[Rfam]
RNA sequence: GGCUCAGUGAUGAAAUCUUUGUCUUGUCUCUACAGAGGUGUUGUCUUAAAAAUCUUGUGCAAUAGAUUUAUGCUGAGGACC
Numbered sequence: 001g002g003c004u005c006a007g008u009g010a011u012g013a014a015a016u017c018u019u020u021g022u023c024u025u026g027u028c029u030c031u032a033c034a035g036a037g038g039u040g041u042u043g044u045c046u047u048a049a050a051a052a053u054c055u056u057g058u059g060c061a062a063u064a065g066a067u068u069u070a071u072g073c074u075g076a077g078g079a080c081c
Base pairs, nucleotide, nucleotide: 001081002080004078005075006074008072009071